[Rfam]
RNA sequence: UAAAAGGGCUUCUGCCUGAGUGGCAUAUGUAGGGCAACCUGAUUGCUCUGUGUGCAGAAGUGACAUCAACAAAUUUCAGAAGCGUCAUUUUUUGGUAUAUGGGCAGCUGGUGAUGGGGGAAAAUACUUUCUACAUCUUACCCUAUCACACCA
Dot-bracket structure: .......(((((((((.....))))((((((((((((.....))))))))))))..(((.(..........).)))..)))))........................(((...((..............................))..)))
Notes:
The record is a 152-nucleotide sequence from Castor canadensis, which matches "U11 spliceosomal RNA" in Rfam.